mir-8364 microRNA precursor family: a 61-nucleotide RNA sequence from Pristionchus pacificus. The base pairs follow the family's consensus structure, which was predicted with RNAalifold.
RNA sequence: UCUUCAUUUAACACACUCUCUCACUUCCAUGACCGGCGAGAGAGUGUGCAAAAUGAAGAGA
Numbered sequence: 001u002c003u004u005c006a007u008u009u010a011a012c013a014c015a016c017u018c019u020c021u022c023a024c025u026u027c028c029a030u031g032a033c034c035g036g037c038g039a040g041a042g043a044g045u046g047u048g049c050a051a052a053a054u055g056a057a058g059a060g061a
Stems, first nucleotide, its partner, number of pairs: 001059007012048006019041004
Gene Ontology terms of the family: miRNA-mediated post-transcriptional gene silencing and RISC complex.